The record is an 88-nucleotide RNA from Vibrio mediterranei, which matches "c-di-GMP-I riboswitch aptamer" in Rfam.
It is one of the family's seed sequences.
The organism belongs to Vibrio mediterranei, within Bacteria.
RNA sequence: UCACGCACAGGGCAAACCACUUGAAAGGGUGGGACGCAAAGCCACCGGCCUAAACCAAAUUUAUUUGAUAGGUAGCGGGGUUACCGAU
Numbered sequence: 001u002c003a004c005g006c007a008c009a010g011g012g013c014a015a016a017c018c019a020c021u022u023g024a025a026a027g028g029g030u031g032g033g034a035c036g037c038a039a040a041g042c043c044a045c046c047g048g049c050c051u052a053a054a055c056c057a058a059a060u061u062u063a064u065u066u067g068a069u070a071g072g073u074a075g076c077g078g079g080g081u082u083a084c085c086g087a088u
Stems, first nucleotide, its partner, number of pairs: 012037002017032006040082004045078003048073003055067001057065002